RNA sequence: ACAUACUAUUAUUUAUUAUUCACACAUAUCGACACAUCUGCCGGGGUGCUCAGUUACUUAUUGUAAGUAACAAUGGCGAUUACGCUGUUAUCGGGUCGGUUUUAAGAUGGGAUAUGUGGACGCCUAAC
Numbered sequence: 001a002c003a004u005a006c007u008a009u010u011a012u013u014u015a016u017u018a019u020u021c022a023c024a025c026a027u028a029u030c031g032a033c034a035c036a037u038c039u040g041c042c043g044g045g046g047u048g049c050u051c052a053g054u055u056a057c058u059u060a061u062u063g064u065a066a067g068u069a070a071c072a073a074u075g076g077c078g079a080u081u082a083c084g085c086u087g088u089u090a091u092c093g094g095g096u097c098g099g100u101u102u103u104a105a106g107a108u109g110g111g112a113u114a115u116g117u118g119g120a121c122g123c124c125u126a127a128c
Stems, first nucleotide, its partner, number of pairs: 023118008035109005040100004048096004
Dot-bracket structure: ......................((((((((....(((((((((....((((.........................................))))))))....))))).))))))))..........